[Rfam]
RNA sequence: GGCCCAGCUCUUGCUGUAGGACUGCCAUAGGCAACCAACGGCGGCUGCCCUACUUACGACAAAGGCGUCGC
Numbered sequence: 001g002g003c004c005c006a007g008c009u010c011u012u013g014c015u016g017u018a019g020g021a022c023u024g025c026c027a028u029a030g031g032c033a034a035c036c037a038a039c040g041g042c043g044g045c046u047g048c049c050c051u052a053c054u055u056a057c058g059a060c061a062a063a064g065g066c067g068u069c070g071c
Base pairs, nucleotide, nucleotide: 030049031048032047033046035044036043